[Rfam]
RNA sequence: GGCGAUAAAUUGUGAUGUGUAAUAGACGCAGCGGACCCGGGGGCAGUACCCGGCGGCUCCACCAUAAACCCCGGUAAAACGGGGCAGAUGACGGGGCCGAACUAGGAUCGACGUGUGUUCAAAGACAUUGUUUUUGCCCGGGUUGAGAAUCCCCGUAAAAAGCUCACAACACAUAAGUGCAAACGAUAACGAAGCACUCGCAAUCGCUGCGUAA
Numbered sequence: 001g002g003c004g005a006u007a008a009a010u011u012g013u014g015a016u017g018u019g020u021a022a023u024a025g026a027c028g029c030a031g032c033g034g035a036c037c038c039g040g041g042g043g044c045a046g047u048a049c050c051c052g053g054c055g056g057c058u059c060c061a062c063c064a065u066a067a068a069c070c071c072c073g074g075u076a077a078a079a080c081g082g083g084g085c086a087g088a089u090g091a092c093g094g095g096g097c098c099g100a101a102c103u104a105g106g107a108u109c110g111a112c113g114u115g116u117g118u119u120c121a122a123a124g125a126c127a128u129u130g131u132u133u134u135u136g137c138c139c140g141g142g143u144u145g146a147g148a149a150u151c152c153c154c155g156u157a158a159a160a161a162g163c164u165c166a167c168a169a170c171a172c173a174u175a176a177g178u179g180c181a182a183a184c185g186a187u188a189a190c191g192a193a194g195c196a197c198u199c200g201c202a203a204u205c206g207c208u209g210c211g212u213a214a
Stems, first nucleotide, its partner, number of pairs: 001138005015128004027117003031114003037053005054099007139155004